This 82-nucleotide RNA sequence from Leptobrachium leishanense belongs to the Rfam family "mir-150 microRNA precursor family". The source organism's lineage runs through Eukaryota, Opisthokonta, Teleostomi, Amphibia and Leptobrachium. The literature on the family includes a 2008 paper in Genome Res by Murchison et al., "Conservation of small RNA pathways in platypus". It scores 60 bits against the family's covariance model.
RNA sequence: GCCAUUCUUUCUCUCUCCCAACCCUUGUACCAGAGUGUUAACAGGAGCCCUGGUACAGAGGAUGGCUGAAAGGGAGCAAUGG
Numbered sequence: 001g002c003c004a005u006u007c008u009u010u011c012u013c014u015c016u017c018c019c020a021a022c023c024c025u026u027g028u029a030c031c032a033g034a035g036u037g038u039u040a041a042c043a044g045g046a047g048c049c050c051u052g053g054u055a056c057a058g059a060g061g062a063u064g065g066c067u068g069a070a071a072g073g074g075a076g077c078a079a080u081g082g
Base pairs, nucleotide, nucleotide: 010073011072012071014069015068017065018064023058026057027056028055029054030053031052032051